[Rfam]
RNA: Group II catalytic intron D1-D4-3
RNA sequence: UCUACCGUGAGGUGGAAUCUGAAAGAAGCUGUAGGCAAACCUCUGGUCCGACGGACAGAAAUCACAUAUAAGGCGAGGUUCCGACAGAUAAGCUGGCCAAAAGCAGUGAAGUCUGAUAACUACCCCGUUUGUAGGAACAGCGUAAAUGUGGCGGAUAGAUGGAGGGAAAGAGCGUGCA
Numbered sequence: 001u002c003u004a005c006c007g008u009g010a011g012g013u014g015g016a017a018u019c020u021g022a023a024a025g026a027a028g029c030u031g032u033a034g035g036c037a038a039a040c041c042u043c044u045g046g047u048c049c050g051a052c053g054g055a056c057a058g059a060a061a062u063c064a065c066a067u068a069u070a071a072g073g074c075g076a077g078g079u080u081c082c083g084a085c086a087g088a089u090a091a092g093c094u095g096g097c098c099a100a101a102a103g104c105a106g107u108g109a110a111g112u113c114u115g116a117u118a119a120c121u122a123c124c125c126c127g128u129u130u131g132u133a134g135g136a137a138c139a140g141c142g143u144a145a146a147u148g149u150g151g152c153g154g155a156u157a158g159a160u161g162g163a164g165g166g167a168a169a170g171a172g173c174g175u176g177c178a
Stems, first nucleotide, its partner, number of pairs: 001016006030176003036170001040165006046156005062151006073143003078138005086114004092107004
Dot-bracket structure: ((((((....)))))).............(((...(...(((((((((((...........((((((.....(((..(((((...((((..((((........))))...))))...................)))))..)))..)))))))))))...))))))....)...)))..